[Rfam]
RNA: TPP riboswitch aptamer (THI element)
RNA sequence: CAGGUCGACCACGGGAGCCCGCGGCAGCGGGCUGAGAAAGGGCUGGAGCCGCCCUGACCGUCAUACCUGAUCCGGGUCAUACCGGCGGAGGGACGUCCGGCCGACCCGGA
Numbered sequence: 001c002a003g004g005u006c007g008a009c010c011a012c013g014g015g016a017g018c019c020c021g022c023g024g025c026a027g028c029g030g031g032c033u034g035a036g037a038a039a040g041g042g043c044u045g046g047a048g049c050c051g052c053c054c055u056g057a058c059c060g061u062c063a064u065a066c067c068u069g070a071u072c073c074g075g076g077u078c079a080u081a082c083c084g085g086c087g088g089a090g091g092g093a094c095g096u097c098c099g100g101c102c103g104a105c106c107c108g109g110a
Stems, first nucleotide, its partner, number of pairs: 007097003011061004017032005039055005066091003072085004